[Rfam]
RNA sequence: UGAAAGUGUACCUAGGGUUCCGUUCUUUAAAAAAAUUUUAAAGAAGCUGGUCCAAGCGGUACAAGCAUUGUGCCAAUGCUACACCGAAGGGAAAAAAGCCCGGGCGGA
Numbered sequence: 001u002g003a004a005a006g007u008g009u010a011c012c013u014a015g016g017g018u019u020c021c022g023u024u025c026u027u028u029a030a031a032a033a034a035a036u037u038u039u040a041a042a043g044a045a046g047c048u049g050g051u052c053c054a055a056g057c058g059g060u061a062c063a064a065g066c067a068u069u070g071u072g073c074c075a076a077u078g079c080u081a082c083a084c085c086g087a088a089g090g091g092a093a094a095a096a097a098g099c100c101c102g103g104g105c106g107g108a
Stems, first nucleotide, its partner, number of pairs: 007063006015053002020050002022047001023045009064080006082103001084106001089101003
RNA: Guanidine-I riboswitch aptamer